[Rfam]
RNA sequence: CUGCGAAUGUGCUUGCUCCUAUAAUUUUGUAAUAAUUUGGGCAGGCUGAACAUGUGCUACACUGAGACCACGUUUGUGUCUCCAGACCUAGUUCUUGCCUUAGUUCUGGUUUUAUAAAUGCUGGUAGUAAAU
Numbered sequence: 001c002u003g004c005g006a007a008u009g010u011g012c013u014u015g016c017u018c019c020u021a022u023a024a025u026u027u028u029g030u031a032a033u034a035a036u037u038u039g040g041g042c043a044g045g046c047u048g049a050a051c052a053u054g055u056g057c058u059a060c061a062c063u064g065a066g067a068c069c070a071c072g073u074u075u076g077u078g079u080c081u082c083c084a085g086a087c088c089u090a091g092u093u094c095u096u097g098c099c100u101u102a103g104u105u106c107u108g109g110u111u112u113u114a115u116a117a118a119u120g121c122u123g124g125u126a127g128u129a130a131a132u
Base pairs, nucleotide, nucleotide: 003057004056005055016044017043019041020040023037024036025035026034067125068124069123070122072121073120082109083108084107085106086105088103089102090101091100